[Rfam]
RNA sequence: AUCGGGAUAGUGCCCGGUGAAAAUCGUUGGGCGGCUGGGCACGCA
Number, nucleotide and partner (000 for none) at each position: 001a000002u000003c000004g000005g000006g000007a000008u000009a000010g000011u000012g032013c031014c030015c029016g028017g027018u026019g000020a000021a000022a000023a000024u000025c000026g018027u017028u016029g015030g014031g013032c012033g000034g000035c000036u000037g000038g000039g000040c000041a000042c000043g000044c000045a000
Annotation
Mycobacterium sRNA Ms_AS-5: a 45-nucleotide RNA sequence from Mycobacterium colombiense. The sequence is in the family's curated seed alignment. The base pairs follow the family's consensus structure. For this family Rfam cites "Identification of small RNAs in Mycobacterium smegmatis using heterologous Hfq" (Li et al., RNA, 2013). Rfam classes the family as a small RNA.